[Rfam]
RNA sequence: GCCGGUCCUCGGUAGUGGUCCCCGGACGCCCCCGCGAUGGGUUCCGUGGACUUCGAUCGAUGACCGGC
Numbered sequence: 001g002c003c004g005g006u007c008c009u010c011g012g013u014a015g016u017g018g019u020c021c022c023c024g025g026a027c028g029c030c031c032c033c034g035c036g037a038u039g040g041g042u043u044c045c046g047u048g049g050a051c052u053u054c055g056a057u058c059g060a061u062g063a064c065c066g067g068c
Stems, first nucleotide, its partner, number of pairs: 001068007009060005017052005023046004029040002